[Rfam]
RNA sequence: AUGCACCAGAUAUGGACCCGACUGUCCUCAGCACCAGUACACACUGGUGUCUUGAGUUCCGUGACUGUUGGGUUUUAAGAAAGGUGCCACAGAAACACCAGCCCUGAUAUUUAAGCUCAUGAGUGUGAAGGUGCACUCUUGAGUUAUGGCUCAGAGGCACAGUG
Numbered sequence: 001a002u003g004c005a006c007c008a009g010a011u012a013u014g015g016a017c018c019c020g021a022c023u024g025u026c027c028u029c030a031g032c033a034c035c036a037g038u039a040c041a042c043a044c045u046g047g048u049g050u051c052u053u054g055a056g057u058u059c060c061g062u063g064a065c066u067g068u069u070g071g072g073u074u075u076u077a078a079g080a081a082a083g084g085u086g087c088c089a090c091a092g093a094a095a096c097a098c099c100a101g102c103c104c105u106g107a108u109a110u111u112u113a114a115g116c117u118c119a120u121g122a123g124u125g126u127g128a129a130g131g132u133g134c135a136c137u138c139u140u141g142a143g144u145u146a147u148g149g150c151u152c153a154g155a156g157g158c159a160c161a162g163u164g
Stems, first nucleotide, its partner, number of pairs: 003087005015074004020069003024065003027056004031051001032049006101158003121136001123134004137155002140153005
RNA: Small Cajal body specific RNA 1
Organism: Oncorhynchus kisutch